RNA sequence: ACAGUACAAACUGAACAGGCAGCGACUAAGUCGUGUGGCCGGGUUGCUUAGCAACAGCAGAUUUAAUUAUUCAUAUUGAUGAUAAUUAACAUCUGUGGGACAGUA
Numbered sequence: 001a002c003a004g005u006a007c008a009a010a011c012u013g014a015a016c017a018g019g020c021a022g023c024g025a026c027u028a029a030g031u032c033g034u035g036u037g038g039c040c041g042g043g044u045u046g047c048u049u050a051g052c053a054a055c056a057g058c059a060g061a062u063u064u065a066a067u068u069a070u071u072c073a074u075a076u077u078g079a080u081g082a083u084a085a086u087u088a089a090c091a092u093c094u095g096u097g098g099g100a101c102a103g104u105a
Stems, first nucleotide, its partner, number of pairs: 010104004016099001018040003022034005043055005057096006
RNA: NiCo (Nickel/Cobalt) riboswitch aptamer
Organism: Turicibacter sp. HGF1